[Rfam]
RNA sequence: UAAGACAAGUAGAAGCACCCGCUUCUCACCUGAUCGACACCAAAAGGUAGUUGACUGGUUCCAACUUAGAUAAAAUUGCUAUUGGAAAUGUGUGGGUGCGAUGUAAGUGCCGACACUUUUUUAAUUUG
Numbered sequence: 001u002a003a004g005a006c007a008a009g010u011a012g013a014a015g016c017a018c019c020c021g022c023u024u025c026u027c028a029c030c031u032g033a034u035c036g037a038c039a040c041c042a043a044a045a046g047g048u049a050g051u052u053g054a055c056u057g058g059u060u061c062c063a064a065c066u067u068a069g070a071u072a073a074a075a076u077u078g079c080u081a082u083u084g085g086a087a088a089u090g091u092g093u094g095g096g097u098g099c100g101a102u103g104u105a106a107g108u109g110c111c112g113a114c115a116c117u118u119u120u121u122u123a124a125u126u127u128g
Base pairs, nucleotide, nucleotide: 011026012025013024014023015022016021028059029058030057036052037051038050039048040047091115092114093113095111096110097109098108099107
RNA: Ribosomal protein L20 leader